[Rfam]
RNA sequence: GGGCACCUACGGGGGCCUAUAAACCAUAGCCGCCAUGCGCGGCUGACAAGCAAAACGGAAGACAGACA
Number, nucleotide and partner (000 for none) at each position: 001g018002g017003g016004c015005a000006c014007c013008u012009a000010c000011g000012g008013g007014g006015g004016c003017c002018u001019a000020u000021a000022a000023a000024c000025c000026a000027u045028a044029g043030c042031c041032g040033c039034c000035a000036u000037g000038c000039g033040c032041g031042g030043c029044u028045g027046a000047c000048a000049a000050g000051c000052a000053a000054a000055a000056c000057g000058g000059a000060a000061g000062a000063c000064a000065g000066a000067c000068a000

A member of the RNA family "L2-Alphaproteobacteria ribosomal protein leader" from Sulfitobacter sp. SK011, 68 nucleotides long.
By type it is a cis-regulatory leader.
The base pairs follow the family's consensus structure, which is taken from published work.